[Rfam]
RNA sequence: UGACCAGGGGGCCGGGUUGCUCUGAUCAAUUGCGAUCGGCGUGACCUACGGGUACAGGGAGUGCCUGCGCAAGGGCCGGGUCAGGCGAAAA
Numbered sequence: 001u002g003a004c005c006a007g008g009g010g011g012c013c014g015g016g017u018u019g020c021u022c023u024g025a026u027c028a029a030u031u032g033c034g035a036u037c038g039g040c041g042u043g044a045c046c047u048a049c050g051g052g053u054a055c056a057g058g059g060a061g062u063g064c065c066u067g068c069g070c071a072a073g074g075g076c077c078g079g080g081u082c083a084g085g086c087g088a089a090a091a
Stems, first nucleotide, its partner, number of pairs: 001083005010077004014047005020041001022039006049067007